[Rfam]
Nucleotides: 108
Stems, first nucleotide, its partner, number of pairs: 007026002012022003030066009041056001046051001077103012
Number, partner (000 for none) and nucleotide at each position: 001000c002000u003000c004000a005000a006000g007026g008025g009000a010000g011000u012022a013021g014020c015000u016000g017000g018000c019000g020014g021013u022012u023000u024000u025008c026007c027000g028000c029000g030066a031065u032064a033063g034062u035061g036060u037059c038058g039000u040000c041056a042000u043000u044000a045000c046051g047000a048000a049000a050000u051046u052000a053000u054000u055000u056041u057000c058038c059037g060036g061035c062034a063033c064032u065031g066030u067000a068000u069000u070000a071000a072000a073000c074000a075000g076000c077103g078102a079101g080100a081099c082098u083097u084096g085095u086094u087093u088092c089000u090000a091000g092088g093087a094086a095085a096084c097083a098082g099081g100080u101079c102078u103077c104000u105000u106000u107000u108000u
About this RNA: Streptococcus sRNA 10: a 108-nucleotide RNA from Streptococcus sp. DD10. On this family, see Tesorero et al., PLoS One 2013: "Novel regulatory small RNAs in Streptococcus pyogenes". It is annotated as a small RNA.